[Rfam]
RNA: F6 TB sRNA
RNA sequence: GGGAUAGCUCCGUGUUGUCGUCUGACCCCCCGACCCGACGGCAACACGGGGCGACUAC
Numbered sequence: 001g002g003g004a005u006a007g008c009u010c011c012g013u014g015u016u017g018u019c020g021u022c023u024g025a026c027c028c029c030c031c032g033a034c035c036c037g038a039c040g041g042c043a044a045c046a047c048g049g050g051g052c053g054a055c056u057a058c
Stems, first nucleotide, its partner, number of pairs: 003056001005054001007052016